The family of this 70-nucleotide sequence from Astyanax mexicanus is "miR-430 microRNA precursor family". The literature on the family includes a 2005 paper in Science by Giraldez et al., "MicroRNAs regulate brain morphogenesis in zebrafish". The match comes from Rfam's covariance-model search (66 bits). Rfam links the family to the GO terms miRNA-mediated post-transcriptional gene silencing and RISC complex. The family has 32 seed sequences and 24,817 matches in Rfam 15.1.

RNA sequence: AUUGGUACUCUAACAACGGCACUGACCUUUCCAUAGUAAUUAGUAAGUGCUAUUUGUUGGGGUAGUUUUA
Numbered sequence: 001a002u003u004g005g006u007a008c009u010c011u012a013a014c015a016a017c018g019g020c021a022c023u024g025a026c027c028u029u030u031c032c033a034u035a036g037u038a039a040u041u042a043g044u045a046a047g048u049g050c051u052a053u054u055u056g057u058u059g060g061g062g063u064a065g066u067u068u069u070a
Base pairs, nucleotide, nucleotide: 004066006064007063008062009061010060011059013057014056015055016054018051019050020049021048022047023046025044026043